[Rfam]
RNA: Glycine riboswitch aptamer
Organism: Cellvibrio polysaccharolyticus
RNA sequence: GCCAGCCUCGCAGGAGAGAGAGGUUUAUCCUCCGCCGAAGGCGCAAACUCCCAUAAUCGCUCAGGCAAAUAUACUGCGACACACAG
Dot-bracket structure: .......((((((......((((.....)))).(((((..(((...(......)...))))).))).......)))))).......